Annotation:
Rfam assigns this 88-nucleotide RNA from Weissella koreensis to the family "tRNA". The base pairs follow the family's consensus structure, which is taken from published work. The match comes from Rfam's covariance-model search (50 bits). NCBI's taxonomy places the organism under Bacteria, Bacillota, Bacilli, Lactobacillales, Weissella.

[Rfam]
RNA sequence: GGGGACAUACUCAAGAGGCUGAAGAGGCGCCCCUGCUAAGGGUGUAGGUCGGGAAACUGGCGCGAGGGUUCGAAUCCCUCUGUCUCCG
Dot-bracket structure: (((((((..(((...........))).(((((.......)))))...................(((((.......)))))))))))).